Annotation:
GA-cis RNA: an 86-nucleotide RNA sequence from Roseburia sp. 1XD42-69.
RNA sequence: GAUAGGAGGAAGGCAAAUGCGUAGCAUUUUUAGGACGCCUUCCGACGAUUUGCCGCCGAAGCGAAAGUGAGGGGGCGUUACAUUAU
Numbered sequence: 001g002a003u004a005g006g007a008g009g010a011a012g013g014c015a016a017a018u019g020c021g022u023a024g025c026a027u028u029u030u031u032a033g034g035a036c037g038c039c040u041u042c043c044g045a046c047g048a049u050u051u052g053c054c055g056c057c058g059a060a061g062c063g064a065a066a067g068u069g070a071g072g073g074g075g076c077g078u079u080a081c082a083u084u085a086u
Base pairs, nucleotide, nucleotide: 008043009042010041011040012039013038016028018026019025052076053075054074056072057071061068062067
The base pairs follow the family's consensus structure, which is taken from published work.
NCBI's taxonomy places the organism under Bacteria, Bacillati, Bacillota, Lachnospirales, Roseburia.